Bacillus sRNA ncr1575: a 216-nucleotide sequence from Bacillus cereus.
It is annotated as a small RNA.
Taxonomically the source falls in Bacillus cereus (Bacteria, Bacillati, Bacilli, Caryophanales).
For this family Rfam cites "Identification of regulatory RNAs in Bacillus subtilis" (Irnov et al., Nucleic Acids Res, 2010).
RNA sequence: AAAUAGAAAUAUGAAAGGAAUGAUGGAUGAAUAAUGAUUAACUAAUUUAUAUUUUAAUUUGAAUUUUAUAACUUCAAACUACAAAAUAUAGGGUUAGUCUAUCCAUUUUUAUAAUUCAUUUCAUACUUUAUUUGUCAUGAUUCAAAUGAUUAAUAAGUACUUAUUAAGUAUAAGAGACAGACUAAUCCUUCCGAUUAAUAAUUGGGGGAUUUUUUU
Numbered sequence: 001a002a003a004u005a006g007a008a009a010u011a012u013g014a015a016a017g018g019a020a021u022g023a024u025g026g027a028u029g030a031a032u033a034a035u036g037a038u039u040a041a042c043u044a045a046u047u048u049a050u051a052u053u054u055u056a057a058u059u060u061g062a063a064u065u066u067u068a069u070a071a072c073u074u075c076a077a078a079c080u081a082c083a084a085a086a087u088a089u090a091g092g093g094u095u096a097g098u099c100u101a102u103c104c105a106u107u108u109u110u111a112u113a114a115u116u117c118a119u120u121u122c123a124u125a126c127u128u129u130a131u132u133u134g135u136c137a138u139g140a141u142u143c144a145a146a147u148g149a150u151u152a153a154u155a156a157g158u159a160c161u162u163a164u165u166a167a168g169u170a171u172a173a174g175a176g177a178c179a180g181a182c183u184a185a186u187c188c189u190u191c192c193g194a195u196u197a198a199u200a201a202u203u204g205g206g207g208g209a210u211u212u213u214u215u216u
Stems, first nucleotide, its partner, number of pairs: 016110003024105004031098002043096006049089006058078006065071001118165001124159005184211005190206005